[Rfam]
RNA sequence: AAAAAACUCUUUGCAAUUCUUGUGGUGGGACAGCGCAUGGGCAGGACGGUAUAACCGUCCGGCGAUAGCCACCCAUGCGCGAUACGAGGCUCCUGACGGGGCCUUUUUUUAUGCCCUGAA
Dot-bracket structure: ......(.(...............).)((.(.(((((((((..((((((.....)))))).((....))..))))))))).....((((((((....)))))))).......).))....